Annotation:
Shown here is a 113-nucleotide sequence from Neobacillus massiliamazoniensis, a member of the family "SAM riboswitch aptamer (S box leader)". The match comes from Rfam's covariance-model search (98 bits). NCBI's taxonomy places the organism under Bacteria, Bacillati, Bacillota, Bacillaceae, Neobacillus.
[Rfam]
RNA sequence: UUCUUAUCAAGAGAGGUAGAGGGACUGGCCCGAAGACACCUCAGCAACCUUCAAUGGCGUGCCCAUUGAAAAGGUGCUAAUUCCUGCAAAUUUUGUAAUUUGCGAGAUAAGAA
Numbered sequence: 001u002u003c004u005u006a007u008c009a010a011g012a013g014a015g016g017u018a019g020a021g022g023g024a025c026u027g028g029c030c031c032g033a034a035g036a037c038a039c040c041u042c043a044g045c046a047a048c049c050u051u052c053a054a055u056g057g058c059g060u061g062c063c064c065a066u067u068g069a070a071a072a073g074g075u076g077c078u079a080a081u082u083c084c085u086g087c088a089a090a091u092u093u094u095g096u097a098a099u100u101u102g103c104g105a106g107a108u109a110a111g112a113a
Base pairs, nucleotide, nucleotide: 001113002112003111004110005109006108007107008106013042014041015040016039017038021031022030023029025086027084028083043078044077045076046075048074049073050070051069052068053067054066055065056064082105087102088101089100090099091098092097